[Rfam]
RNA sequence: GCCUCAUUCAGAAGCGCCCGAGAGAACUGGCUCGUUGACGGCGCGGCAACCAGGGCCUCAUUUCGCCCACGGUGCUCCGGCCAGCCUGCCGCGCAGGGUUACGAUGACCCGCCGCGCAGGACCGAUGAGGG
Numbered sequence: 001g002c003c004u005c006a007u008u009c010a011g012a013a014g015c016g017c018c019c020g021a022g023a024g025a026a027c028u029g030g031c032u033c034g035u036u037g038a039c040g041g042c043g044c045g046g047c048a049a050c051c052a053g054g055g056c057c058u059c060a061u062u063u064c065g066c067c068c069a070c071g072g073u074g075c076u077c078c079g080g081c082c083a084g085c086c087u088g089c090c091g092c093g094c095a096g097g098g099u100u101a102c103g104a105u106g107a108c109c110c111g112c113c114g115c116g117c118a119g120g121a122c123c124g125a126u127g128a129g130g131g
Stems, first nucleotide, its partner, number of pairs: 002130007014044005022033003027084004045076004050072002053068004080123001085120005
SAM riboswitch aptamer (S box leader): a 131-nucleotide RNA from Deinococcus proteolyticus.
It scores 53 bits against the family's covariance model.
NCBI's taxonomy places the organism under Bacteria, Thermotogati, Deinococcota, Deinococcales, Deinococcus proteolyticus.
The family's consensus secondary structure is taken from published work.